[Rfam]
RNA sequence: AUUUAUGUUUUCUAGGGUUCCGCAGCCGCAGGUUUAAGGUUCAUCAGGCUGGCAGGUCCGAGGGAAAACGCAUGGACCGGCAGGUUCAUGUUCACACGGAGGGAUAAAAGCCCGGGAGGU
Numbered sequence: 001a002u003u004u005a006u007g008u009u010u011u012c013u014a015g016g017g018u019u020c021c022g023c024a025g026c027c028g029c030a031g032g033u034u035u036a037a038g039g040u041u042c043a044u045c046a047g048g049c050u051g052g053c054a055g056g057u058c059c060g061a062g063g064g065a066a067a068a069c070g071c072a073u074g075g076a077c078c079g080g081c082a083g084g085u086u087c088a089u090g091u092u093c094a095c096a097c098g099g100a101g102g103g104a105u106a107a108a109a110g111c112c113c114g115g116g117a118g119g120u
Stems, first nucleotide, its partner, number of pairs: 007069006015059002020056002022053001023051005070091008095115001097118001101113003
A member of the RNA family "Guanidine-I riboswitch aptamer" from Paenibacillus sp. NFR01, 120 nucleotides long. It scores 75 bits against the family's covariance model. Taxonomically the source falls in Paenibacillus (Bacteria, Bacillati, Bacillota, Paenibacillaceae).